A member of the RNA family "int-alpA RNA" from Metallibacterium scheffleri, 67 nucleotides long. A search with the family's covariance model found it, with a score of 46 bits. Rfam describes the family as follows. Acidobacteria (1 example), Planctomycetes (1 example), Proteobacteria. NCBI's taxonomy places the organism under Bacteria, Pseudomonadati, Pseudomonadota, Gammaproteobacteria, Metallibacterium.
RNA sequence: GCCACGGCUAGGGUAGCUCCCGAAUGCCGGCCACCUUCACCGGCUGCCGUUGCGAUCCCUUGAAGGG
Numbered sequence: 001g002c003c004a005c006g007g008c009u010a011g012g013g014u015a016g017c018u019c020c021c022g023a024a025u026g027c028c029g030g031c032c033a034c035c036u037u038c039a040c041c042g043g044c045u046g047c048c049g050u051u052g053c054g055a056u057c058c059c060u061u062g063a064a065g066g067g
Base pairs, nucleotide, nucleotide: 001053002052004050005049006048007047008046011021012020013019027043028042029041030040034067035066036065037064